[Rfam]
RNA sequence: AAAGAGGCACCUGAAAAUCUUAAAAAGAGUAAGGA
Numbered sequence: 001a002a003a004g005a006g007g008c009a010c011c012u013g014a015a016a017a018u019c020u021u022a023a024a025a026a027g028a029g030u031a032a033g034g035a
Base pairs, nucleotide, nucleotide: 002021003020004019005018010034011033012032
Dot-bracket structure: .((((....[[[.....))))..........]]].

This 35-nucleotide sequence belongs to the Rfam family "DUF805b RNA". Clan: DUF805 clan. By type it is a cis-regulatory element.